[Rfam]
RNA sequence: AUACUUACCUGGCACAGGAGAACCGCGAUCCUGAAGGCGGUUUUCUCAGGGAGAGGCCCACCAUUGCACUCCGGCGGUGCUGACCCUUGCGAUUAACCCAAAUGUGGUUAAUGCUGGGGUCACACAUUGGCGAAUCGGCUGCGCGAAUGUCUGCGAACAAAAAAAUGGCCGAUUCGUU
Numbered sequence: 001a002u003a004c005u006u007a008c009c010u011g012g013c014a015c016a017g018g019a020g021a022a023c024c025g026c027g028a029u030c031c032u033g034a035a036g037g038c039g040g041u042u043u044u045c046u047c048a049g050g051g052a053g054a055g056g057c058c059c060a061c062c063a064u065u066g067c068a069c070u071c072c073g074g075c076g077g078u079g080c081u082g083a084c085c086c087u088u089g090c091g092a093u094u095a096a097c098c099c100a101a102a103u104g105u106g107g108u109u110a111a112u113g114c115u116g117g118g119g120u121c122a123c124a125c126a127u128u129g130g131c132g133a134a135u136c137g138g139c140u141g142c143g144c145g146a147a148u149g150u151c152u153g154c155g156a157a158c159a160a161a162a163a164a165a166u167g168g169c170c171g172a173u174u175c176g177u178u
Base pairs, nucleotide, nucleotide: 012121015118017046018045019044020043021042022041023040024039025038026037048088049087050086051085053084055081056080057079058077059076061074062073090116091115094110095109097107098106130177131176132175133174134173135172137170138169139168140167141166
Dot-bracket structure: ...........(..(.((((((((((..........)))))))))).((((.(.(((((.((..........)).)).)))..))))).((..((.((.......)).))....)).)..)........((((((.(((((........................))))).)))))).
The family of this 178-nucleotide RNA sequence from Chionoecetes opilio is "U1 spliceosomal RNA".
Its family is annotated with pre-mRNA 5'-splice site binding, U1 snRNP and mRNA 5'-splice site recognition in the Gene Ontology.
It scores 76 bits against the family's covariance model.